[Rfam]
Nucleotides: 120
Stems, first nucleotide, its partner, number of pairs: 007107004011071004016065001017037007044064001046062001048060001076101004082095004
Number, partner (000 for none) and nucleotide at each position: 001000g002000a003000c004000c005000g006000a007107a008106c009105a010104c011071a012070g013069g014068g015000g016065u017037g018036c019035u020034g021033g022032g023031a024000c025000c026000a027000a028000a029000g030000u031023u032022c033021c034020c035019g036018g037017c038000u039000g040000a041000g042000a043000u044064g045000c046062g047000a048060g049000a050000g051000g052000g053000c054000c055000u056000g057000g058000c059000c060048u061000c062046u063000c064044c065016g066000a067000u068014c069013c070012c071011u072000c073000a074000g075000a076101c077100c078099u079098g080000a081000u082095c083094c084093g085092g086000g087000u088000a089000a090000u091000g092085c093084c094083g095082g096000c097000g098079u099078a100077g101076g102000g103000a104010g105009u106008g107007u108000g109000g110000a111000a112000a113000g114000a115000g116000a117000g118000g119000a120000c